[Rfam]
RNA sequence: CAGGUGACACCGCCUAAUCCCGGGCGCCUCGCCCGGGAACCGGGGACCCAACCAGCACUUGGGGUGAAUCCACGGCACACCCACCGUGGUAGGGCCACUCCGCCCGAACCCGUCAGCUAACCCGGUCGGCAGGAGGAGAGGAGAA
Numbered sequence: 001c002a003g004g005u006g007a008c009a010c011c012g013c014c015u016a017a018u019c020c021c022g023g024g025c026g027c028c029u030c031g032c033c034c035g036g037g038a039a040c041c042g043g044g045g046a047c048c049c050a051a052c053c054a055g056c057a058c059u060u061g062g063g064g065u066g067a068a069u070c071c072a073c074g075g076c077a078c079a080c081c082c083a084c085c086g087u088g089g090u091a092g093g094g095c096c097a098c099u100c101c102g103c104c105c106g107a108a109c110c111c112g113u114c115a116g117c118u119a120a121c122c123c124g125g126u127c128g129g130c131a132g133g134a135g136g137a138g139a140g141g142a143g144a145a
Base pairs, nucleotide, nucleotide: 012130013129014128018038019037020036021035022034023033024032025031026030039126040125041124042123043122044121049061050060062111063110064109070089071088072087073086074085075084092105093104094103095102
Shown here is a 145-nucleotide RNA sequence from Sinosporangium album, a member of the family "c-di-AMP riboswitch aptamer (ydaO/yuaA leader)".